Notes: Group II catalytic intron D1-D4-3: a 171-nucleotide RNA sequence. Pairs were carried over by alignment from the consensus structure. From the family's description: Group II introns are found in rRNA, tRNA and mRNA of organelles in fungi, plants and protists, and also in mRNA in bacteria.

RNA sequence: UUUACUGUGAAGUAGAAUCUGAAGGAAGCUGAAGACGAAGUUAGGAGGUAACGAACAGGAAGUAGAUACAAGGCUUAUAUGAAGGGGAAGUUAGCAUUGAGUAAUGAAACCCAGUAAUUGAUCGUAGUUUAUAUGAGUAAAUCUAAUGCCUCCCUAAUGAAAGAAUUAUGU
Numbered sequence: 001u002u003u004a005c006u007g008u009g010a011a012g013u014a015g016a017a018u019c020u021g022a023a024g025g026a027a028g029c030u031g032a033a034g035a036c037g038a039a040g041u042u043a044g045g046a047g048g049u050a051a052c053g054a055a056c057a058g059g060a061a062g063u064a065g066a067u068a069c070a071a072g073g074c075u076u077a078u079a080u081g082a083a084g085g086g087g088a089a090g091u092u093a094g095c096a097u098u099g100a101g102u103a104a105u106g107a108a109a110c111c112c113a114g115u116a117a118u119u120g121a122u123c124g125u126a127g128u129u130u131a132u133a134u135g136a137g138u139a140a141a142u143c144u145a146a147u148g149c150c151u152c153c154c155u156a157a158u159g160a161a162a163g164a165a166u167u168a169u170g171u
Stems, first nucleotide, its partner, number of pairs: 001016006028171002032167001036163001040158006046151005063145005073138003077134007084112003090105004